[Rfam]
RNA: Actinobacteria sRNA Ms_IGR-5
Organism: Streptomyces scabiei
RNA sequence: ACACGAGAGAGGAGGUGGUUCGGCAGAUGUAUUGCAACCGGACGCGUGAGGUGGCUGCGGGCUAGCGGCCCUGCACCACACACAGUGCGGUGCCGGACCAGCACGCGUCGAACGUGCAGCCGGCCCAAUCUCAAGCAGUCACCCGACCCGCAGGCUCGCCGGUACGUCCGGCCGGCUUCUUCGCCCUUGGGCGGAGGGACCCAGAGUCUGCGGGUCGUCU
Numbered sequence: 001a002c003a004c005g006a007g008a009g010a011g012g013a014g015g016u017g018g019u020u021c022g023g024c025a026g027a028u029g030u031a032u033u034g035c036a037a038c039c040g041g042a043c044g045c046g047u048g049a050g051g052u053g054g055c056u057g058c059g060g061g062c063u064a065g066c067g068g069c070c071c072u073g074c075a076c077c078a079c080a081c082a083c084a085g086u087g088c089g090g091u092g093c094c095g096g097a098c099c100a101g102c103a104c105g106c107g108u109c110g111a112a113c114g115u116g117c118a119g120c121c122g123g124c125c126c127a128a129u130c131u132c133a134a135g136c137a138g139u140c141a142c143c144c145g146a147c148c149c150g151c152a153g154g155c156u157c158g159c160c161g162g163u164a165c166g167u168c169c170g171g172c173c174g175g176c177u178u179c180u181u182c183g184c185c186c187u188u189g190g191g192c193g194g195a196g197g198g199a200c201c202c203a204g205a206g207u208c209u210g211c212g213g214g215u216c217g218u219c220u
Stems, first nucleotide, its partner, number of pairs: 015058005060125004065120002068117002071114001144217013158176006